[Rfam]
RNA: sRNA regulator of biofilms A
Organism: Pseudomonas taeanensis
RNA sequence: AUCAGGGGCCCUGGAAAGGGCCUCCCGGGUCGCUCUCCGACUUACCGUUGGGACGGCUCGUGUUGUAAAGCCCACAAGGCAGUUCGACGAGAUUGCGACUGGAACGAAGUUGUCCUGAGGGACGGGGAAGCGUUUUAACGUAUAGCCAGCAUGGCAAUCGCAGUCUACUGAGUCGUCCAACGGCAUCCACGAGCCGGUAAACGCCAAAUGACCUGGUCAUUUGCAGCAGCUGUAGUCAGCGAACUGUUC
Numbered sequence: 001a002u003c004a005g006g007g008g009c010c011c012u013g014g015a016a017a018g019g020g021c022c023u024c025c026c027g028g029g030u031c032g033c034u035c036u037c038c039g040a041c042u043u044a045c046c047g048u049u050g051g052g053a054c055g056g057c058u059c060g061u062g063u064u065g066u067a068a069a070g071c072c073c074a075c076a077a078g079g080c081a082g083u084u085c086g087a088c089g090a091g092a093u094u095g096c097g098a099c100u101g102g103a104a105c106g107a108a109g110u111u112g113u114c115c116u117g118a119g120g121g122a123c124g125g126g127g128a129a130g131c132g133u134u135u136u137a138a139c140g141u142a143u144a145g146c147c148a149g150c151a152u153g154g155c156a157a158u159c160g161c162a163g164u165c166u167a168c169u170g171a172g173u174c175g176u177c178c179a180a181c182g183g184c185a186u187c188c189a190c191g192a193g194c195c196g197g198u199a200a201a202c203g204c205c206a207a208a209u210g211a212c213c214u215g216g217u218c219a220u221u222u223g224c225a226g227c228a229g230c231u232g233u234a235g236u237c238a239g240c241g242a243a244c245u246g247u248u249c
Stems, first nucleotide, its partner, number of pairs: 005024008029057004036052003040048001042047001059160002062155005070080003082139002086134004115127002174203003179198001181196004